RNA sequence: UCGGGCGAGGCCAUGCGCCCCUGGGUCCGGGUGAGGCCACGUGCCCCUGGGUUCGGGCGAGGCCAUGCGCCCCU
Numbered sequence: 001u002c003g004g005g006c007g008a009g010g011c012c013a014u015g016c017g018c019c020c021c022u023g024g025g026u027c028c029g030g031g032u033g034a035g036g037c038c039a040c041g042u043g044c045c046c047c048u049g050g051g052u053u054c055g056g057g058c059g060a061g062g063c064c065a066u067g068c069g070c071c072c073c074u
Base pairs, nucleotide, nucleotide: 003072004071005070006069007068009064010063011062012061016059017058018057019056020055023054024053025052026051027050028049029048030047031046033045036042037041
RNA: mir-9279 microRNA precursor family